Rfam assigns this 160-nucleotide sequence from Mergibacter septicus to the family "Molybdenum/Tungsten riboswitch aptamer (Moco RNA motif)". Its family is annotated with molybdenum ion binding, regulation of gene expression and tungstate binding in the Gene Ontology. A search with the family's covariance model found it, with a score of 65 bits. Lineage of the source: Bacteria > Pseudomonadota > Pasteurellales > Pasteurellaceae > Mergibacter.
[Rfam]
RNA sequence: AUUAGCAUAUCACUCCGAGCUUGUUCACCUAAGUCUUAUUUCACAUUUUAUAAGGUAUGGUAGCAAUCCCAGUAAAGUUAUUAUAAAGGUAACUUUACGCCGGAUAAAAGGGAAACGGUUUAUCCGCUCGUGUUUAGAAAGGUGUCUUAUGCGGAAGAUU
Numbered sequence: 001a002u003u004a005g006c007a008u009a010u011c012a013c014u015c016c017g018a019g020c021u022u023g024u025u026c027a028c029c030u031a032a033g034u035c036u037u038a039u040u041u042c043a044c045a046u047u048u049u050a051u052a053a054g055g056u057a058u059g060g061u062a063g064c065a066a067u068c069c070c071a072g073u074a075a076a077g078u079u080a081u082u083a084u085a086a087a088g089g090u091a092a093c094u095u096u097a098c099g100c101c102g103g104a105u106a107a108a109a110g111g112g113a114a115a116c117g118g119u120u121u122a123u124c125c126g127c128u129c130g131u132g133u134u135u136a137g138a139a140a141g142g143u144g145u146c147u148u149a150u151g152c153g154g155a156a157g158a159u160u
Stems, first nucleotide, its partner, number of pairs: 003154001006151001012145002015142002019068001021066005027061003033056007072098011101126008111116001127137002